[Rfam]
RNA sequence: GCUUAUUCUCAGGGCAGGGUGCAAUUCCCGACCGGCGGUAAAGUGAGUGAUGUCUCACUAAGCCCGCGAGCGCUUGCAAUCUAUGUUGUAGAGUUCACUAUGUUGCAGGGUCCAGCAGAUCCGGUGAGAAACCGGAGCCGACGGUAACAGUCCGGAUGAGAGAGAAUAAAU
Numbered sequence: 001g002c003u004u005a006u007u008c009u010c011a012g013g014g015c016a017g018g019g020u021g022c023a024a025u026u027c028c029c030g031a032c033c034g035g036c037g038g039u040a041a042a043g044u045g046a047g048u049g050a051u052g053u054c055u056c057a058c059u060a061a062g063c064c065c066g067c068g069a070g071c072g073c074u075u076g077c078a079a080u081c082u083a084u085g086u087u088g089u090a091g092a093g094u095u096c097a098c099u100a101u102g103u104u105g106c107a108g109g110g111u112c113c114a115g116c117a118g119a120u121c122c123g124g125u126g127a128g129a130a131a132c133c134g135g136a137g138c139c140g141a142c143g144g145u146a147a148c149a150g151u152c153c154g155g156a157u158g159a160g161a162g163a164g165a166a167u168a169a170a171u
Stems, first nucleotide, its partner, number of pairs: 003169008017029003031151002033140002035067004062138002070116002120136005142154003

This 171-nucleotide sequence from Terasakiispira papahanaumokuakeensis belongs to the Rfam family "FMN riboswitch aptamer (RFN element)". Rfam links the family to the GO term FMN binding. The organism belongs to Terasakiispira, within Bacteria.